[Rfam]
This 82-nucleotide RNA from Carpinus fangiana belongs to the Rfam family "Small nucleolar RNA R160". The pairing is the family consensus, mapped onto this sequence. A search with the family's covariance model found it, with a score of 44 bits. snoR160 is a C/D box small nucleolar RNA, which acts as a methylation guide for 25S ribosomal RNA in plants. snoR160 has been alternatively named snoZ270 in rice. Gene Ontology terms of the family: nucleolus and RNA processing. The source organism's lineage runs through Eukaryota, Spermatophyta, eudicotyledons, Betulaceae and Carpinus.
RNA sequence: AGCAAAAUAAUGAGCUGCUUAUAUCCGAAUAUGAUGUAAAACACCAUAACAUUUUGGCUUCAAAGUUCUCUGGUGCUUUGCU
Numbered sequence: 001a002g003c004a005a006a007a008u009a010a011u012g013a014g015c016u017g018c019u020u021a022u023a024u025c026c027g028a029a030u031a032u033g034a035u036g037u038a039a040a041a042c043a044c045c046a047u048a049a050c051a052u053u054u055u056g057g058c059u060u061c062a063a064a065g066u067u068c069u070c071u072g073g074u075g076c077u078u079u080g081c082u
Stems, first nucleotide, its partner, number of pairs: 001082005
Dot-bracket structure: (((((........................................................................)))))